[Rfam]
RNA: Small nucleolar RNA SNORA55
Organism: Calypte anna
RNA sequence: GCACCAAAUCUUUCCCAUUCCUUACUGUGAAGUGUAGGCCUGGGGAUACAUGGUGCUUAGAGAAAAGCAGAGUGAAUCCAGACAGGUGACUUCAUCCAUUGAGUCCCUGCCUCUACACCUCUGCAACAGUC
Numbered sequence: 001g002c003a004c005c006a007a008a009u010c011u012u013u014c015c016c017a018u019u020c021c022u023u024a025c026u027g028u029g030a031a032g033u034g035u036a037g038g039c040c041u042g043g044g045g046a047u048a049c050a051u052g053g054u055g056c057u058u059a060g061a062g063a064a065a066a067g068c069a070g071a072g073u074g075a076a077u078c079c080a081g082a083c084a085g086g087u088g089a090c091u092u093c094a095u096c097c098a099u100u101g102a103g104u105c106c107c108u109g110c111c112u113c114u115a116c117a118c119c120u121c122u123g124c125a126a127c128a129g130u131c
Stems, first nucleotide, its partner, number of pairs: 001056005012046006020038002067124006080112002083109004093101001